[Rfam]
The family of this 161-nucleotide sequence from Bradyrhizobium sp. LMTR 3 is "speF leader".
By type it is a cis-regulatory leader.
It scores 55 bits against the family's covariance model.
From the family's description: This family is a putative regulatory RNA structure that is found upstream of the speF gene encoding ornithine decarboxylase in Agrobacterium tumefaciens and other alpha-proteobacteria.
Gene Ontology term of the family: regulation of gene expression.

RNA sequence: UACCGGCAUUCCACCGCCGGCGCGGGCUACUGAAAAGGCUUGUCCUUCAUUGCCAGGUGAGCGGGCGGGAAAAUUCCCAACCAAUCCACGGCAGCACAAUUCGGUUCUUGAGUUCGAGGCUUCGUCGCGUCUCCAUCGUGCGGCAACGCCAGAGCACUCAC
Numbered sequence: 001u002a003c004c005g006g007c008a009u010u011c012c013a014c015c016g017c018c019g020g021c022g023c024g025g026g027c028u029a030c031u032g033a034a035a036a037g038g039c040u041u042g043u044c045c046u047u048c049a050u051u052g053c054c055a056g057g058u059g060a061g062c063g064g065g066c067g068g069g070a071a072a073a074u075u076c077c078c079a080a081c082c083a084a085u086c087c088a089c090g091g092c093a094g095c096a097c098a099a100u101u102c103g104g105u106u107c108u109u110g111a112g113u114u115c116g117a118g119g120c121u122u123c124g125u126c127g128c129g130u131c132u133c134c135a136u137c138g139u140g141c142g143g144c145a146a147c148g149c150c151a152g153a154g155c156a157c158u159c160a161c
Base pairs, nucleotide, nucleotide: 001022003020004019005018006017007016037054038053039052061141062140063139090102091101110123111122